[Rfam]
Shown here is an 84-nucleotide RNA sequence from Aquarana catesbeiana, a member of the family "mir-1805 microRNA precursor family".
RNA sequence: GGAAUGCUCUGGGAGUUGUAGUCUUUCAAACAGAGCUGUGAAAGUCUGUACCUGUAUUGGAACACUACAGCUCCUAGAACUUCC
Numbered sequence: 001g002g003a004a005u006g007c008u009c010u011g012g013g014a015g016u017u018g019u020a021g022u023c024u025u026u027c028a029a030a031c032a033g034a035g036c037u038g039u040g041a042a043a044g045u046c047u048g049u050a051c052c053u054g055u056a057u058u059g060g061a062a063c064a065c066u067a068c069a070g071c072u073c074c075u076a077g078a079a080c081u082u083c084c
Base pairs, nucleotide, nucleotide: 001084002083003082004081008078009077012074013073014072015071016070017069018068019067020066021065022064024062025061026060027059028058029057030055031054032053033052
Description: Gene Ontology terms of the family: RISC complex and miRNA-mediated post-transcriptional gene silencing. Lineage of the source: Eukaryota > Metazoa > Bilateria > Craniata > Aquarana.